Source information
The record is a 210-nucleotide sequence from Crassaminicella thermophila, which matches "raiA RNA" in Rfam. It is annotated as a riboswitch.
RNA sequence: CAUAGUUUAGGUCUGUGGUUGAAAGUCCAUGCCAGUCGCAGGCAAAAGGACCCACGUAAGGUGGUUUUAAAAGCGAAACCACUGAUCAUGGUGCGGCUUAGAUGUAAGACCUGCCAGAGUUAUUCUGAGAGGGGCAGUAGUGAUGGUAACCCCAGAGCGAAAUUUCCAGCAGGCGAGUGUGGGGGCAAAAGACCAGGUCAGCUAACUAUG
Dot-bracket structure: ((((((.(((..((((((((........((([.(((((((.]........((...(..((.(((((((......)))))))))..)..[)))))))))...........((((((((((...)))))...((((.....((...............))....))))..)))))....)))......]...)))))...))))))))))))